RNA sequence: CCCCAGGCUCUUUUAAGAGCCACCCACUUUUUCUUUUUCAAAGAG
Numbered sequence: 001c002c003c004c005a006g007g008c009u010c011u012u013u014u015a016a017g018a019g020c021c022a023c024c025c026a027c028u029u030u031u032u033c034u035u036u037u038u039c040a041a042a043g044a045g
Base pairs, nucleotide, nucleotide: 006021007020008019009018010017011016
RNA: Histone 3' UTR stem-loop
Organism: Pterocles burchelli